Description:
The record is a 134-nucleotide sequence from Mus musculus, which matches "Small nucleolar RNA SNORA70" in Rfam. Taxonomically the source falls in Mus (Eukaryota, Craniata, Euteleostomi, Tetrapoda). A search with the family's covariance model found it, with a score of 74 bits. For this family Rfam cites "Pseudouridine in RNA: what, where, how, and why" (Charette and Gray, IUBMB Life, 2000). The family's consensus secondary structure was predicted with PFOLD. Rfam's curators write: snoRNA U70 seems to be exclusive to mammals and is a member of the H/ACA class of snoRNA which contain H (ANANNA) and ACA box motifs. H/ACA box snoRNAs are involved in the conversion of uridines to pseudouridines (5-ribosyluracil) a constituent of structural RNAs (transfer, ribosomal, small nuclear, and small nucleolar).
RNA sequence: UUGGGGAAAAAAAAGAUAACCAAGUUUCUUCCCCAUAAGGACCUGGUGUGCAAUGGUGGCAAACAGCGGUCUCCUGGGUAGUAUAUGAAGCCUGUUGCCUAUACAAGUUGUCUUAUGACACCUUGUAGAGAAGU
Numbered sequence: 001u002u003g004g005g006g007a008a009a010a011a012a013a014a015g016a017u018a019a020c021c022a023a024g025u026u027u028c029u030u031c032c033c034c035a036u037a038a039g040g041a042c043c044u045g046g047u048g049u050g051c052a053a054u055g056g057u058g059g060c061a062a063a064c065a066g067c068g069g070u071c072u073c074c075u076g077g078g079u080a081g082u083a084u085a086u087g088a089a090g091c092c093u094g095u096u097g098c099c100u101a102u103a104c105a106a107g108u109u110g111u112c113u114u115a116u117g118a119c120a121c122c123u124u125g126u127a128g129a130g131a132a133g134u
Base pairs, nucleotide, nucleotide: 002052003051005049019047020046021045022044025041026040027039077122078121079120089109090108091107093105
Dot-bracket structure: .((.(.............((((..(((...........)))..)))).).))........................(((.........(((.(...........).)))..........)))............